[Rfam]
RNA sequence: UUAGCUACUUUAGAUAGGUUUGUAUUCAUGAAUUAUGGAUACAAACACCAAACAACUGGUUUGUAUCUAUGAUGGCUAAAGAACUUUGUAUUACGCAAAAGCCACGUAGACAUUACGUUAAGUGGCUAAGCGAAAAGUACAAAGUAAUCACGAUUUCUUACUUACAUACUCUUUCGAUACUCAAU
Numbered sequence: 001u002u003a004g005c006u007a008c009u010u011u012a013g014a015u016a017g018g019u020u021u022g023u024a025u026u027c028a029u030g031a032a033u034u035a036u037g038g039a040u041a042c043a044a045a046c047a048c049c050a051a052a053c054a055a056c057u058g059g060u061u062u063g064u065a066u067c068u069a070u071g072a073u074g075g076c077u078a079a080a081g082a083a084c085u086u087u088g089u090a091u092u093a094c095g096c097a098a099a100a101g102c103c104a105c106g107u108a109g110a111c112a113u114u115a116c117g118u119u120a121a122g123u124g125g126c127u128a129a130g131c132g133a134a135a136a137g138u139a140c141a142a143a144g145u146a147a148u149c150a151c152g153a154u155u156u157c158u159u160a161c162u163u164a165c166a167u168a169c170u171c172u173u174u175c176g177a178u179a180c181u182c183a184a185u
Stems, first nucleotide, its partner, number of pairs: 001079007011069006018046012049063005083145010100127006107120003146159002

Enterococcus sRNA 2410: a 185-nucleotide RNA sequence from Enterococcus hirae. The family's consensus secondary structure was predicted with RNAfold. Rfam 15.1 lists 74 matches to the family in 56 species. NCBI's taxonomy places the organism under Bacteria, Bacillati, Lactobacillales, Enterococcaceae, Enterococcus hirae. From the family's description: Produced as 2 transcripts on Northern blot. Expressed in mid, late exponential and early stationary phases of growth. Expression remained uniform under daptomycin exposure.